[Rfam]
RNA sequence: AAUUAGUUUUGCCAAACCGGUCGCGAGGCCGGGACGGAAAGCCACGGGUCUUGAUCAUAAAAGACAGCCGGGUUGCGCAU
Numbered sequence: 001a002a003u004u005a006g007u008u009u010u011g012c013c014a015a016a017c018c019g020g021u022c023g024c025g026a027g028g029c030c031g032g033g034a035c036g037g038a039a040a041g042c043c044a045c046g047g048g049u050c051u052u053g054a055u056c057a058u059a060a061a062a063g064a065c066a067g068c069c070g071g072g073u074u075g076c077g078c079a080u
Stems, first nucleotide, its partner, number of pairs: 012037002017032006040074004045070003048065003

A member of the RNA family "c-di-GMP-I riboswitch aptamer" from Desulfatibacillum alkenivorans, 80 nucleotides long. Lineage of the source: Bacteria > Desulfobacteria > Desulfatibacillaceae > Desulfatibacillum > Desulfatibacillum alkenivorans.